[Rfam]
RNA sequence: GCUGCGCCUAUCCUUCGCGAGGAGAAAACACAGUUACCUUGCUGUGCUGGCGCGGCUUCCCCAACAAGG
Numbered sequence: 001g002c003u004g005c006g007c008c009u010a011u012c013c014u015u016c017g018c019g020a021g022g023a024g025a026a027a028a029c030a031c032a033g034u035u036a037c038c039u040u041g042c043u044g045u046g047c048u049g050g051c052g053c054g055g056c057u058u059c060c061c062c063a064a065c066a067a068g069g
Stems, first nucleotide, its partner, number of pairs: 001056008011023004029046005038069003